Giant, ornate, lake- and Lactobacillales-derived (GOLLD) RNA: a 411-nucleotide RNA. It is one of the family's seed sequences. Pairs were carried over by alignment from the consensus structure, which is taken from published work.

[Rfam]
RNA sequence: AGGUGUAGUUCAGUAUCGUCUCGUUCAAAAGAUGAGACAUCUGGUUUGACGGACCGCUACAUCUAUUAUCCACAAAUCACAACUUUGUUAAUUAAGGUUUAACAACUUAUAAAUCAAUAAAGGAAAAGUGUUCGUCAGUCGUGGUAGACAGGUCACUACUUAGUCAUGAGUUGUUCAUGGCCGUAAAGGGUCCCAAACCCGAUACGAUUGUUUUGAAAGUUCUCUAAUCCCGCAAGGAUGAGUUUGGGUGGCAACCUAGAAGAGUGAUGAGUAAGAAUAGAGUAUAUUACCACUUUAGGAUUGGUUAAUCUAAUUGACCGUGACUGAGAGGUACUUCUCAAAAGGAAGUGGAAAUCGGAGGAAACAAUAAUCUCCUGUAAAGUCUCUCACAAGAUGGUGUAUUCUCAACCU
Numbered sequence: 001a002g003g004u005g006u007a008g009u010u011c012a013g014u015a016u017c018g019u020c021u022c023g024u025u026c027a028a029a030a031g032a033u034g035a036g037a038c039a040u041c042u043g044g045u046u047u048g049a050c051g052g053a054c055c056g057c058u059a060c061a062u063c064u065a066u067u068a069u070c071c072a073c074a075a076a077u078c079a080c081a082a083c084u085u086u087g088u089u090a091a092u093u094a095a096g097g098u099u100u101a102a103c104a105a106c107u108u109a110u111a112a113a114u115c116a117a118u119a120a121a122g123g124a125a126a127a128g129u130g131u132u133c134g135u136c137a138g139u140c141g142u143g144g145u146a147g148a149c150a151g152g153u154c155a156c157u158a159c160u161u162a163g164u165c166a167u168g169a170g171u172u173g174u175u176c177a178u179g180g181c182c183g184u185a186a187a188g189g190g191u192c193c194c195a196a197a198c199c200c201g202a203u204a205c206g207a208u209u210g211u212u213u214u215g216a217a218a219g220u221u222c223u224c225u226a227a228u229c230c231c232g233c234a235a236g237g238a239u240g241a242g243u244u245u246g247g248g249u250g251g252c253a254a255c256c257u258a259g260a261a262g263a264g265u266g267a268u269g270a271g272u273a274a275g276a277a278u279a280g281a282g283u284a285u286a287u288u289a290c291c292a293c294u295u296u297a298g299g300a301u302u303g304g305u306u307a308a309u310c311u312a313a314u315u316g317a318c319c320g321u322g323a324c325u326g327a328g329a330g331g332u333a334c335u336u337c338u339c340a341a342a343a344g345g346a347a348g349u350g351g352a353a354a355u356c357g358g359a360g361g362a363a364a365c366a367a368u369a370a371u372c373u374c375c376u377g378u379a380a381a382g383u384c385u386c387u388c389a390c391a392a393g394a395u396g397g398u399g400u401a402u403u404c405u406c407a408a409c410c411u
Stems, first nucleotide, its partner, number of pairs: 001064009010044004018038008048136007122194002137294003141290006152324005163181006182206004188200004209279005222264004227239004243260003247256002303319006326388006332350007351404003356377001357375005396410003